[Rfam]
RNA sequence: GGACAGCGAUCGCCGAGUCCCCGUACGGCGCGAGCCAGGGGAGCCGGGGACCCAUAUGUCCCUGGGGUGAAUCGGGCCCCUCUCCGGAGGAGUCCGUAGGAGACCUUCCUGCUCCGAACCCGUCAGCUAACCCGGUAGGCGAGAAGGAAGGAAAGG
Numbered sequence: 001g002g003a004c005a006g007c008g009a010u011c012g013c014c015g016a017g018u019c020c021c022c023g024u025a026c027g028g029c030g031c032g033a034g035c036c037a038g039g040g041g042a043g044c045c046g047g048g049g050a051c052c053c054a055u056a057u058g059u060c061c062c063u064g065g066g067g068u069g070a071a072u073c074g075g076g077c078c079c080c081u082c083u084c085c086g087g088a089g090g091a092g093u094c095c096g097u098a099g100g101a102g103a104c105c106u107u108c109c110u111g112c113u114c115c116g117a118a119c120c121c122g123u124c125a126g127c128u129a130a131c132c133c134g135g136u137a138g139g140c141g142a143g144a145a146g147g148a149a150g151g152a153a154a155g156g
Stems, first nucleotide, its partner, number of pairs: 011141004018042005043136006053064002065121003073096004099115004
Shown here is a 156-nucleotide RNA from Streptomyces kasugaensis, a member of the family "c-di-AMP riboswitch aptamer (ydaO/yuaA leader)". It scores 87 bits against the family's covariance model. Its family is annotated with regulation of gene expression and cyclic-di-AMP binding in the Gene Ontology.